[Rfam]
RNA: Small nucleolar RNA SNORD2
Organism: Ursus americanus
RNA sequence: AAAUGAAAAAACAGUGGCAAGGUUUGAGACUGACCUGUAAUGAAGAGAAUACUCAUUGCUGAUCACUU
Numbered sequence: 001a002a003a004u005g006a007a008a009a010a011a012c013a014g015u016g017g018c019a020a021g022g023u024u025u026g027a028g029a030c031u032g033a034c035c036u037g038u039a040a041u042g043a044a045g046a047g048a049a050u051a052c053u054c055a056u057u058g059c060u061g062a063u064c065a066c067u068u
Stems, first nucleotide, its partner, number of pairs: 001068002004065003